[Rfam]
RNA sequence: CGGGUCACAAAGUGUAUGUGAAAUGUGGCGUCUUUGAAUUCAUAUCACAGCCACUUUGAUGACCUCGG
Numbered sequence: 001c002g003g004g005u006c007a008c009a010a011a012g013u014g015u016a017u018g019u020g021a022a023a024u025g026u027g028g029c030g031u032c033u034u035u036g037a038a039u040u041c042a043u044a045u046c047a048c049a050g051c052c053a054c055u056u057u058g059a060u061g062a063c064c065u066c067g068g
Stems, first nucleotide, its partner, number of pairs: 005062003008058007017049005024044003
About this RNA: This 68-nucleotide RNA sequence from Pediculus humanus belongs to the Rfam family "mir-2 microRNA precursor family". Its family is annotated with miRNA-mediated post-transcriptional gene silencing and RISC complex in the Gene Ontology. The literature on the family includes a 2001 paper in Cell by Ambros, "microRNAs: tiny regulators with great potential". The organism belongs to Pediculus humanus, within Eukaryota. The family's consensus secondary structure was predicted with PFOLD. The family has 56 seed sequences and 918 matches in Rfam 15.1. A search with the family's covariance model found it, with a score of 54 bits.